RNA sequence: CACUGAUGGGCCUGAAUAGUUGGCUCAAACCUGUAUUUGAGUAAGGUGAGCAAACUUUCAGGUGUGUUAGUGG
Numbered sequence: 001c002a003c004u005g006a007u008g009g010g011c012c013u014g015a016a017u018a019g020u021u022g023g024c025u026c027a028a029a030c031c032u033g034u035a036u037u038u039g040a041g042u043a044a045g046g047u048g049a050g051c052a053a054a055c056u057u058u059c060a061g062g063u064g065u066g067u068u069a070g071u072g073g
Stems, first nucleotide, its partner, number of pairs: 002071006010063006018056004024050004030046003
mir-87 microRNA precursor family: a 73-nucleotide RNA from Leptidea sinapis. The family's consensus secondary structure was predicted with RNAalifold. It scores 57 bits against the family's covariance model. The family has 44 seed sequences and 420 matches in Rfam 15.1. Lineage of the source: Eukaryota > Protostomia > Insecta > Neolepidoptera > Leptidea.